[Rfam]
RNA: Bacterial large signal recognition particle RNA
Organism: Pelotomaculum propionicicum
RNA sequence: CCGUGCUAGACGGGGAGGUAGCGGUGCCCUGUAACCCGCAAACCGCUGCAGCGGGGUCGAAUUCCUGCCCCAGGGUUUAGCUUGUGGGGUCCGGCUCCCGUAAGGGGCGUAGACGAUUGGGUCUCGUGCGACGGAGCUUCCUGAACCGUGUCAGGUCUUGACGGAAGCAGCACUAAGGGAAAUACUCCGGGUGCCGCGAGGUCGCCUGGUCCGAGCUACCUGCGGGUGUAUCGCCCGGAAGCUAAUAUUCAAAGGCAGGUGCACGG
Numbered sequence: 001c002c003g004u005g006c007u008a009g010a011c012g013g014g015g016a017g018g019u020a021g022c023g024g025u026g027c028c029c030u031g032u033a034a035c036c037c038g039c040a041a042a043c044c045g046c047u048g049c050a051g052c053g054g055g056g057u058c059g060a061a062u063u064c065c066u067g068c069c070c071c072a073g074g075g076u077u078u079a080g081c082u083u084g085u086g087g088g089g090u091c092c093g094g095c096u097c098c099c100g101u102a103a104g105g106g107g108c109g110u111a112g113a114c115g116a117u118u119g120g121g122u123c124u125c126g127u128g129c130g131a132c133g134g135a136g137c138u139u140c141c142u143g144a145a146c147c148g149u150g151u152c153a154g155g156u157c158u159u160g161a162c163g164g165a166a167g168c169a170g171c172a173c174u175a176a177g178g179g180a181a182a183u184a185c186u187c188c189g190g191g192u193g194c195c196g197c198g199a200g201g202u203c204g205c206c207u208g209g210u211c212c213g214a215g216c217u218a219c220c221u222g223c224g225g226g227u228g229u230a231u232c233g234c235c236c237g238g239a240a241g242c243u244a245a246u247a248u249u250c251a252a253a254g255g256c257a258g259g260u261g262c263a264c265g266g
Stems, first nucleotide, its partner, number of pairs: 001266006009058003012030004017025001019023001035055005064259006073250004079243005085237004092233002097226005104220002106217003115211008123200006129191001132189005138181005148173004156165003